[Rfam]
This 158-nucleotide sequence from Glycine soja belongs to the Rfam family "MIR4371 microRNA precursor family".
The base pairs follow the family's consensus structure, which was predicted with RNAalifold.
RNA sequence: CCGUUAAAUAAUAAGGUGACAAACAGAGUAUCACAUCAUCACACCGUGUCAUGAACACCUCAUUGCUACAUCAUCACCUUCAAUGAUGUGACAAUGACGUCUCAGUGAUUAGGCGUGAUGACGUGACACUAUGUCUGUCACAUCAUCACUUAACGGAA
Numbered sequence: 001c002c003g004u005u006a007a008a009u010a011a012u013a014a015g016g017u018g019a020c021a022a023a024c025a026g027a028g029u030a031u032c033a034c035a036u037c038a039u040c041a042c043a044c045c046g047u048g049u050c051a052u053g054a055a056c057a058c059c060u061c062a063u064u065g066c067u068a069c070a071u072c073a074u075c076a077c078c079u080u081c082a083a084u085g086a087u088g089u090g091a092c093a094a095u096g097a098c099g100u101c102u103c104a105g106u107g108a109u110u111a112g113g114c115g116u117g118a119u120g121a122c123g124u125g126a127c128a129c130u131a132u133g134u135c136u137g138u139c140a141c142a143u144c145a146u147c148a149c150u151u152a153a154c155g156g157a158a
Base pairs, nucleotide, nucleotide: 001156002155003154004153005152006151007150009148011146012145014143016141017140018139019138020137021136023134024133025132027130028129029128031126032125033124034123036121037120038119039118040117041116042115044113045112048109049108050107051106052105055102057100058099070087071086072085073084074083
NCBI's taxonomy places the organism under Eukaryota, Embryophyta, Fabales, Fabaceae, Glycine subgen. Soja. Rfam links the family to the GO terms RISC complex and miRNA-mediated post-transcriptional gene silencing. The family has 4 seed sequences and 321 matches in Rfam 15.1.